A member of the RNA family "Bacterial RNase P class A" from Paramicrobacterium agarici, 364 nucleotides long.
Gene Ontology terms of the family: tRNA processing, dimeric ribonuclease P complex and ribonuclease P activity.
The family's RNA type in Rfam is ribozyme.
RNA sequence: CGGGUCGGCAAGACGGUCGCGUCACCGGUAACGGUGCCGAGGAACGUCCGGGCUCCGCAGAGCAGGGUGGUGGGUAACACCCACCCGAGGUAACUCGCGAGACAGUGCAACAGAAAGCAGACCGCCACACGGUCAAACCGUGCGGUAAGGGUGAAAGGGUGGUGUAAGAGACCACCAGCAUCCGAGGUGACUCGGAUGGCUCGGUAAACCUCGCCCGGAGCAAGGCCAGACAGGGAACCAUGAGGCUGCUCGUCUCGUUCCCGGGUAGGCCGCUAGAGGGCCGUGGCAACACGUCCCCGAGAGAGAUGGCCGUCGAUGGCGUUCGUCGCCUGAACAGAACCCGGCGUAUCAGCCGACCCGCUCA
Number, nucleotide and partner (000 for none) at each position: 001c360002g359003g358004g357005u356006c355007g354008g353009c352010a000011a349012g314013a313014c312015g311016g310017u309018c308019g000020c039021g038022u000023c036024a035025c034026c033027g032028g000029u000030a000031a000032c027033g026034g025035u024036g023037c000038c021039g020040a000041g000042g000043a000044a347045c346046g345047u000048c344049c343050g342051g341052g340053c220054u219055c218056c217057g000058c000059a000060g251061a250062g249063c248064a000065g216066g215067g214068u213069g212070g084071u083072g082073g081074g080075u000076a000077a000078c000079a000080c074081c073082c072083a071084c070085c099086c097087g096088a095089g094090g000091u000092a000093a000094c089095u088096c087097g086098c000099g085100a211101g210102a000103c000104a000105g209106u208107g205108c204109a000110a000111c000112a000113g000114a000115a000116a000117g000118c000119a000120g000121a000122c150123c149124g146125c145126c144127a000128c142129a141130c140131g139132g138133u000134c000135a000136a000137a000138c132139c131140g130141u129142g128143c000144g126145g125146u124147a000148a000149g123150g122151g000152u000153g000154a000155a000156a000157g000158g176159g175160u174161g173162g172163u171164g000165u000166a000167a000168g000169a000170g000171a163172c162173c161174a160175c159176c158177a000178g200179c198180a197181u196182c195183c194184g193185a192186g191187g000188u000189g000190a000191c186192u185193c184194g183195g182196a181197u180198g179199g000200c178201u000202c000203g000204g108205u107206a000207a000208a106209c105210c101211u100212c069213g068214c067215c066216c065217g056218g055219a054220g053221c000222a000223a000224g271225g270226c269227c268228a000229g000230a000231c000232a000233g262234g261235g260236a259237a258238c257239c000240a000241u000242g256243a255244g254245g253246c252247u000248g063249c062250u061251c060252g246253u245254c244255u243256c242257g238258u237259u236260c235261c234262c233263g000264g000265g000266u000267a000268g227269g226270c225271c224272g000273c000274u000275a000276g000277a000278g297279g296280g295281c000282c293283g292284u291285g290286g000287c000288a000289a000290c285291a284292c283293g282294u000295c280296c279297c278298c000299g000300a000301g000302a000303g000304a000305g000306a000307u000308g018309g017310c016311c015312g014313u013314c012315g000316a000317u000318g000319g000320c000321g000322u000323u000324c000325g000326u000327c000328g000329c000330c000331u000332g000333a000334a000335c000336a000337g000338a000339a000340c052341c051342c050343g049344g048345c046346g045347u044348a000349u011350c000351a000352g009353c008354c007355g006356a005357c004358c003359c002360g001361c000362u000363c000364a000